A member of the RNA family "Iron response element I" from Muntiacus reevesi, 36 nucleotides long. The match comes from Rfam's covariance-model search (35 bits). Its family is annotated with response to iron ion in the Gene Ontology. The literature on the family includes a 1987 paper in Science by Hentze et al., "Identification of the iron-responsive element for the translational regulation of human ferritin mRNA". By type it is a cis-regulatory element. Pairs were carried over by alignment from the consensus structure, which is taken from published work.
RNA sequence: CAAUUUCCUGCUUCAGCAGUGCUUGGACAGAACCUG
Numbered sequence: 001c002a003a004u005u006u007c008c009u010g011c012u013u014c015a016g017c018a019g020u021g022c023u024u025g026g027a028c029a030g031a032a033c034c035u036g
Stems, first nucleotide, its partner, number of pairs: 001036002005032003010028001012027005017021001